[Rfam]
RNA: permuted transfer-messenger RNA
RNA sequence: GGCGAUAAACGCCGCGUGGCAUAAGCGUAUCGGACCCGGGGGCAGUACCCGGCGCCUCCACCAUUUUCCCUCGCUUCUCGAAGCGAGGUCGAUGGGGGCGAAACAGGAUCGACGAGCGUGGUAAAGGCGCGGUUUUUGCCCGGCAUGGUUCCGCCGUAAAGGGCCACACACAAGUGCCAACGAUAACGACGUUGCACUCGCUGCUGCCGCCUAA
Dot-bracket structure: (((((........((((........(((.(((...(((((.......)))))(((((((..................................)))))))............))))))........)))).....)))))((((........))))..........................................................
Numbered sequence: 001g002g003c004g005a006u007a008a009a010c011g012c013c014g015c016g017u018g019g020c021a022u023a024a025g026c027g028u029a030u031c032g033g034a035c036c037c038g039g040g041g042g043c044a045g046u047a048c049c050c051g052g053c054g055c056c057u058c059c060a061c062c063a064u065u066u067u068c069c070c071u072c073g074c075u076u077c078u079c080g081a082a083g084c085g086a087g088g089u090c091g092a093u094g095g096g097g098g099c100g101a102a103a104c105a106g107g108a109u110c111g112a113c114g115a116g117c118g119u120g121g122u123a124a125a126g127g128c129g130c131g132g133u134u135u136u137u138g139c140c141c142g143g144c145a146u147g148g149u150u151c152c153g154c155c156g157u158a159a160a161g162g163g164c165c166a167c168a169c170a171c172a173a174g175u176g177c178c179a180a181c182g183a184u185a186a187c188g189a190c191g192u193u194g195c196a197c198u199c200g201c202u203g204c205u206g207c208c209g210c211c212u213a214a
Stems, first nucleotide, its partner, number of pairs: 001140005014130004026118003030115003036052005053100007141156004